The record is a 97-nucleotide sequence from Agromyces mariniharenae, which matches "mraW RNA" in Rfam. Rfam classes the family as a cis-regulatory element. A search with the family's covariance model found it, with a score of 56 bits. The source organism's lineage runs through Bacteria, Bacillati, Actinomycetes, Micrococcales and Agromyces.
RNA sequence: UUCUAGUCCCGGAUUGCGACUCCCAGCCGUGCGCGCCUGGUGCACUUCCCCGCAUCAGGACGAACGGAUGGGGAUCGGAGUCCGGGAACCGGUCCCG
Numbered sequence: 001u002u003c004u005a006g007u008c009c010c011g012g013a014u015u016g017c018g019a020c021u022c023c024c025a026g027c028c029g030u031g032c033g034c035g036c037c038u039g040g041u042g043c044a045c046u047u048c049c050c051c052g053c054a055u056c057a058g059g060a061c062g063a064a065c066g067g068a069u070g071g072g073g074a075u076c077g078g079a080g081u082c083c084g085g086g087a088a089c090c091g092g093u094c095c096c097g
Stems, first nucleotide, its partner, number of pairs: 010084006018076002021073005027067004032062002036059008